Overview: This 71-nucleotide RNA from Carlito syrichta belongs to the Rfam family "Small nucleolar RNA SNORD30". Pairs were carried over by alignment from the consensus structure. Lineage of the source: Eukaryota > Opisthokonta > Dipnotetrapodomorpha > Boreoeutheria > Carlito.
RNA sequence: ACACAUGAUGACUUACAUUGGAAUCUCGUUCGGCUGAUGGCUUGCUGUUGAGACUCGGAAGUCUGACUUUC
Numbered sequence: 001a002c003a004c005a006u007g008a009u010g011a012c013u014u015a016c017a018u019u020g021g022a023a024u025c026u027c028g029u030u031c032g033g034c035u036g037a038u039g040g041c042u043u044g045c046u047g048u049u050g051a052g053a054c055u056c057g058g059a060a061g062u063c064u065g066a067c068u069u070u071c
Stems, first nucleotide, its partner, number of pairs: 024053005031047004
Dot-bracket structure: .......................(((((..((((.........)))).)))))..................